[Rfam]
RNA: Bacteroides sRNA BTnc049
RNA sequence: ACAGAAAAGGGAUUGUGAAAUUCCAAGAAUAGAAUAGUUUAGUUAAGUCUAGUUUAGUUUUUGUGUUGAUCGGAAGCCUGCGAGCGAGCAUGAGCUUCCGAUUUUUA
Numbered sequence: 001a002c003a004g005a006a007a008a009g010g011g012a013u014u015g016u017g018a019a020a021u022u023c024c025a026a027g028a029a030u031a032g033a034a035u036a037g038u039u040u041a042g043u044u045a046a047g048u049c050u051a052g053u054u055u056a057g058u059u060u061u062u063g064u065g066u067u068g069a070u071c072g073g074a075a076g077c078c079u080g081c082g083a084g085c086g087a088g089c090a091u092g093a094g095c096u097u098c099c100g101a102u103u104u105u106u107a
Stems, first nucleotide, its partner, number of pairs: 001064005009024006036055002039052004071100007078092001079090003